About this RNA:
Rfam assigns this 128-nucleotide RNA from Psophia crepitans to the family "Small nucleolar RNA SNORA65". U65 belongs to the H/ACA class of snoRNAs which are thought to guide the sites of modification of uridines to pseudouridines. For this family Rfam cites "RNomics: an experimental approach that identifies 201 candidates for novel, small, non-messenger RNAs in mouse" (Huttenhofer et al., EMBO J, 2001). Its family is annotated with RNA processing and nucleolus in the Gene Ontology. The family is grouped with related families in Rfam's "SNORA65 clan". The source organism's lineage runs through Eukaryota, Bilateria, Archosauria, Dinosauria and Psophia. The match comes from Rfam's covariance-model search (94 bits).
[Rfam]
RNA sequence: CCUGCCACUGUACCUGUCCUGCGCUGGUGGCUGGUGCGUUCCAGUGGUGAGCUGAGAGGAAGCCCCAGCCCAGGAAGCAGCCCUCCUCUGGCCGUGGGGAGGCCUGUGCCGAAAGGCUGGGAACAAGC
Numbered sequence: 001c002c003u004g005c006c007a008c009u010g011u012a013c014c015u016g017u018c019c020u021g022c023g024c025u026g027g028u029g030g031c032u033g034g035u036g037c038g039u040u041c042c043a044g045u046g047g048u049g050a051g052c053u054g055a056g057a058g059g060a061a062g063c064c065c066c067a068g069c070c071c072a073g074g075a076a077g078c079a080g081c082c083c084u085c086c087u088c089u090g091g092c093c094g095u096g097g098g099g100a101g102g103c104c105u106g107u108g109c110c111g112a113a114a115g116g117c118u119g120g121g122a123a124c125a126a127g128c
Base pairs, nucleotide, nucleotide: 005047006046007045008044009043010042018034019033021031022029023028063121064120065119067118069115073110074109078106079105080104082102083101086098087097088096